[Rfam]
Shown here is a 93-nucleotide sequence from Paenisporosarcina antarctica, a member of the family "Glycine riboswitch aptamer". Pairs were carried over by alignment from the consensus structure. The source organism's lineage runs through Bacteria, Bacilli, Caryophanales, Caryophanaceae and Paenisporosarcina.
RNA sequence: AUGAGUAUACGGGGAGAGAACGCGCAAGUCGCGUCACCGAAGGAGCAAGUAGAAGCUACGAAUCUCUCAGGUAAAAAAGACUCGUAUAGGACG
Numbered sequence: 001a002u003g004a005g006u007a008u009a010c011g012g013g014g015a016g017a018g019a020a021c022g023c024g025c026a027a028g029u030c031g032c033g034u035c036a037c038c039g040a041a042g043g044a045g046c047a048a049g050u051a052g053a054a055g056c057u058a059c060g061a062a063u064c065u066c067u068c069a070g071g072u073a074a075a076a077a078a079g080a081c082u083c084g085u086a087u088a089g090g091a092c093g
Base pairs, nucleotide, nucleotide: 006088007087008086009085010084011083012082013081020034021033022032023031036072037071038070039068040067043066044065045064049059050058